[Rfam]
RNA sequence: UAGUGUUACGGCUCUUUUAAAAUUUGUCUCGCACGCUUUCCAGUUUUUGCCAGAAAGCCCUU
Numbered sequence: 001u002a003g004u005g006u007u008a009c010g011g012c013u014c015u016u017u018u019a020a021a022a023u024u025u026g027u028c029u030c031g032c033a034c035g036c037u038u039u040c041c042a043g044u045u046u047u048u049g050c051c052a053g054a055a056a057g058c059c060c061u062u
Stems, first nucleotide, its partner, number of pairs: 035058006043050002
RNA: U7 small nuclear RNA